Background:
ACEA small nucleolar RNA U3: a 144-nucleotide RNA from Leishmania tarentolae. About the family: Small nucleolar RNAs (snoRNAs) are involved in the processing and modification of rRNA in the nucleolus. There are two main classes of snoRNAs: the box C/D class, and the box H/ACA class. U3 snoRNA is a member of the box C/D class. Indeed, the box C/D element is a subset of the six short sequence elements found in all U3 snoRNAs, namely boxes A, A', B, C, C', and D. The U3 snoRNA secondary structure is characterised by a small 5' domain (with boxes A and A'), and a larger 3' domain (with boxes B, C, C', and D), the two domains being linked by a single-stranded hinge. Boxes B and C form the B/C motif, which appears to be exclusive to U3 snoRNAs, and boxes C' and D form the C'/D motif. The latter is functionally similar to the C/D motifs found in other snoRNAs. The 5' domain and the hinge region act as a pre-rRNA-binding domain. The 3' domain has conserved protein-binding sites. Both the box B/C and box C'/D motifs are sufficient for nuclear retention of U3 snoRNA. The box C'/D motif is also necessary for nucleolar localisation, stability and hyper-methylation of U3 snoRNA. Both box B/C and C'/D motifs are involved in specific protein interactions and are necessary for the rRNA processing functions of U3 snoRNA. NCBI's taxonomy places the organism under Eukaryota, Euglenozoa, Metakinetoplastina, Leishmania, lizard Leishmania. A reference for the family is Zwieb (1997), "The uRNA database", Nucleic Acids Res. Its family is annotated with RNA processing and nucleolus in the Gene Ontology.
[Rfam]
RNA sequence: AAGACCGUACUCUGAACAGAAUCGUUUUAUGAGUACAACCUCUUAAUUGAAAAGAAACCGAGUUUCAAAUCCUGAUGAAGACGGUUGCUUUCUCCGCCCGGAGAGCGUUUCGAUUGAACGGCAGGAGAGAGUUCCAGAAGGAUU
Numbered sequence: 001a002a003g004a005c006c007g008u009a010c011u012c013u014g015a016a017c018a019g020a021a022u023c024g025u026u027u028u029a030u031g032a033g034u035a036c037a038a039c040c041u042c043u044u045a046a047u048u049g050a051a052a053a054g055a056a057a058c059c060g061a062g063u064u065u066c067a068a069a070u071c072c073u074g075a076u077g078a079a080g081a082c083g084g085u086u087g088c089u090u091u092c093u094c095c096g097c098c099c100g101g102a103g104a105g106c107g108u109u110u111c112g113a114u115u116g117a118a119c120g121g122c123a124g125g126a127g128a129g130a131g132u133u134c135c136a137g138a139a140g141g142a143u144u
Stems, first nucleotide, its partner, number of pairs: 001044003008035004018028004047068006069143005088131005094125002096122003099112004